[Rfam]
RNA sequence: ACAAUGGUGGCUGUCAUUGGGGAGUAGCCUCCCUUCCCGCAAGGGGAAGGGGCGUGCGUCAACAGACUUGGGCCUCGCGCCCAUGGCGCCCGCGACUUCGGUUUGGCGAGACCUUUGACUGCGCAGCCCUCCUGUAUGGCCGGGGCGCUGCGCAGUCAUUGGUGCGUCCGUCGCCCCGGCCGGAGUUC
Numbered sequence: 001a002c003a004a005u006g007g008u009g010g011c012u013g014u015c016a017u018u019g020g021g022g023a024g025u026a027g028c029c030u031c032c033c034u035u036c037c038c039g040c041a042a043g044g045g046g047a048a049g050g051g052g053c054g055u056g057c058g059u060c061a062a063c064a065g066a067c068u069u070g071g072g073c074c075u076c077g078c079g080c081c082c083a084u085g086g087c088g089c090c091c092g093c094g095a096c097u098u099c100g101g102u103u104u105g106g107c108g109a110g111a112c113c114u115u116u117g118a119c120u121g122c123g124c125a126g127c128c129c130u131c132c133u134g135u136a137u138g139g140c141c142g143g144g145g146c147g148c149u150g151c152g153c154a155g156u157c158a159u160u161g162g163u164g165c166g167u168c169c170g171u172c173g174c175c176c177c178g179g180c181c182g183g184a185g186u187u188c
Stems, first nucleotide, its partner, number of pairs: 032050003052093003056089006069083005094187010
RNA: Manganese Mn2+ riboswitch aptamer (yybP-ykoY)
Organism: Ramlibacter pinisoli